[Rfam]
RNA sequence: ACGCUCGCAAAGGGGCUGUCGUAUGUUUUUUAGUGUUGUUCAUAUCACAGCCAGCUUUGAUGAGCGUGG
Numbered sequence: 001a002c003g004c005u006c007g008c009a010a011a012g013g014g015g016c017u018g019u020c021g022u023a024u025g026u027u028u029u030u031u032a033g034u035g036u037u038g039u040u041c042a043u044a045u046c047a048c049a050g051c052c053a054g055c056u057u058u059g060a061u062g063a064g065c066g067u068g069g
Stems, first nucleotide, its partner, number of pairs: 005063003008059005014052006021045001024044003
mir-2 microRNA precursor family: a 69-nucleotide sequence from Armadillidium nasatum. On this family, see Ambros, Cell 2001: "microRNAs: tiny regulators with great potential". Pairs were carried over by alignment from the consensus structure, which was predicted with PFOLD. Rfam links the family to the GO terms RISC complex and miRNA-mediated post-transcriptional gene silencing.